Bacterial small signal recognition particle RNA: a 98-nucleotide sequence from Latilactobacillus sakei. The organism belongs to Latilactobacillus sakei subsp. sakei, within Bacteria. The literature on the family includes a 2003 paper in Nucleic Acids Res by Rosenblad et al., "SRPDB: Signal Recognition Particle Database". The signal recognition particle (SRP) is a universally conserved ribonucleoprotein involved in the co-translational targeting of proteins to membranes.
[Rfam]
RNA sequence: CGUAAGGCCUUGAGACAAUGAUGAGCCUACGAAUCGUGUCAGGUUCGGAAGAAAGCAGCACUAAGUUUGUUUUAUCAUGUGUCUUAAGUUUUUUAGAA
Numbered sequence: 001c002g003u004a005a006g007g008c009c010u011u012g013a014g015a016c017a018a019u020g021a022u023g024a025g026c027c028u029a030c031g032a033a034u035c036g037u038g039u040c041a042g043g044u045u046c047g048g049a050a051g052a053a054a055g056c057a058g059c060a061c062u063a064a065g066u067u068u069g070u071u072u073u074a075u076c077a078u079g080u081g082u083c084u085u086a087a088g089u090u091u092u093u094u095a096g097a098a
Stems, first nucleotide, its partner, number of pairs: 004092005010087006016079001018078006025070002029066002036061004044053003